[Rfam]
RNA sequence: AAGUGUUUACAGCUCUUUUGCUAUUUGCUAGCAGGUUCUCACUGAGUGGGAGCCACA
Numbered sequence: 001a002a003g004u005g006u007u008u009a010c011a012g013c014u015c016u017u018u019u020g021c022u023a024u025u026u027g028c029u030a031g032c033a034g035g036u037u038c039u040c041a042c043u044g045a046g047u048g049g050g051a052g053c054c055a056c057a
Stems, first nucleotide, its partner, number of pairs: 034054009
RNA: U7 small nuclear RNA